[Rfam]
RNA sequence: GCAAGGAGCCACUCCACCGCGGGGCCGCGAGGCCACGAGGAAAGUCCGGGCAACGCAGGGCGCCCUGCUACCUAACGGGUAGGCCUGGCCAAUUGGGCCAGGACAGCCAGUGCCACAGAAAAUAACCGCCGACUUUUCAUUUAACAGUUAGCAAUUAACAUUUAACAAUUCUUAAAUGACUGUUAAAUAUUAAUUGCUAACUGUUAAAUGAAAAAGGUAAGGGUGAAAAGGUGCGGUAAGAGCGCACCAGCGGCUGGGUGACCAUGCCGGCUGGGUAAACCUCAGGGGUUGCAAGACCAAAUAGGCCAACGCGCUUUCUCCUCGGGGAAAGCACCGGGCGGCCCGCUCGGGUUGGCGGGUAGGUUGCUGGAGCCUAGGGGUGACCCUAGGCCUAGAUAAAUGGUGGGGCCGCCGCCCGUGGAAACACGGAAGGGCGGACAGAACCCGGCUUAUCGGCUUCUUGCCUAA
Numbered sequence: 001g002c003a004a005g006g007a008g009c010c011a012c013u014c015c016a017c018c019g020c021g022g023g024g025c026c027g028c029g030a031g032g033c034c035a036c037g038a039g040g041a042a043a044g045u046c047c048g049g050g051c052a053a054c055g056c057a058g059g060g061c062g063c064c065c066u067g068c069u070a071c072c073u074a075a076c077g078g079g080u081a082g083g084c085c086u087g088g089c090c091a092a093u094u095g096g097g098c099c100a101g102g103a104c105a106g107c108c109a110g111u112g113c114c115a116c117a118g119a120a121a122a123u124a125a126c127c128g129c130c131g132a133c134u135u136u137u138c139a140u141u142u143a144a145c146a147g148u149u150a151g152c153a154a155u156u157a158a159c160a161u162u163u164a165a166c167a168a169u170u171c172u173u174a175a176a177u178g179a180c181u182g183u184u185a186a187a188u189a190u191u192a193a194u195u196g197c198u199a200a201c202u203g204u205u206a207a208a209u210g211a212a213a214a215a216g217g218u219a220a221g222g223g224u225g226a227a228a229a230g231g232u233g234c235g236g237u238a239a240g241a242g243c244g245c246a247c248c249a250g251c252g253g254c255u256g257g258g259u260g261a262c263c264a265u266g267c268c269g270g271c272u273g274g275g276u277a278a279a280c281c282u283c284a285g286g287g288g289u290u291g292c293a294a295g296a297c298c299a300a301a302u303a304g305g306c307c308a309a310c311g312c313g314c315u316u317u318c319u320c321c322u323c324g325g326g327g328a329a330a331g332c333a334c335c336g337g338g339c340g341g342c343c344c345g346c347u348c349g350g351g352u353u354g355g356c357g358g359g360u361a362g363g364u365u366g367c368u369g370g371a372g373c374c375u376a377g378g379g380g381u382g383a384c385c386c387u388a389g390g391c392c393u394a395g396a397u398a399a400a401u402g403g404u405g406g407g408g409c410c411g412c413c414g415c416c417c418g419u420g421g422a423a424a425c426a427c428g429g430a431a432g433g434g435c436g437g438a439c440a441g442a443a444c445c446c447g448g449c450u451u452a453u454c455g456g457c458u459u460c461u462u463g464c465c466u467a468a
Base pairs, nucleotide, nucleotide: 001464002463003462004461005460006459007458008457009456010455011453012408013407014406015405016404017403018402020037021036023034024033025032026031042451043450044449046448047447048446049445050444051291052290053289054288058344059343060342061341063287064286065285066284067283068082069081070080071079072078083104084102085101086100087099088098089097090096105282106281110280111279112276113275114274126222127221128218129217130216134215135214136213137212230248231247232246233245234244235243250271251269252268253267254266255264256263257262295365296364297363298362305356306355307354308353309352310351335349336348337347338346339345372391373390374389375388376387377386378385379384
RNA: Bacterial RNase P class A
Organism: Hymenobacter polaris